[Rfam]
A member of the RNA family "mir-355 microRNA precursor family" from Caenorhabditis elegans, 76 nucleotides long. For this family Rfam cites "Patterns of flanking sequence conservation and a characteristic upstream motif for microRNA gene identification" (Ohler et al., RNA, 2004). Rfam's curators put it in the seed alignment. Pairs were carried over by alignment from the consensus structure, which was predicted with RNAalifold.
RNA sequence: AUUGAAUGGUUUGUUUUAGCCUGAGCUAUGAGUCAUCGGAAUAUGCAUAGCUUCUUGCUAAAACAUGCCAAUCAAU
Numbered sequence: 001a002u003u004g005a006a007u008g009g010u011u012u013g014u015u016u017u018a019g020c021c022u023g024a025g026c027u028a029u030g031a032g033u034c035a036u037c038g039g040a041a042u043a044u045g046c047a048u049a050g051c052u053u054c055u056u057g058c059u060a061a062a063a064c065a066u067g068c069c070a071a072u073c074a075a076u
Base pairs, nucleotide, nucleotide: 003074004073005072007070008069009068010067012065013064014063015062016061017060018059019058020057023054024052025051026050027049028048029047030046032044033043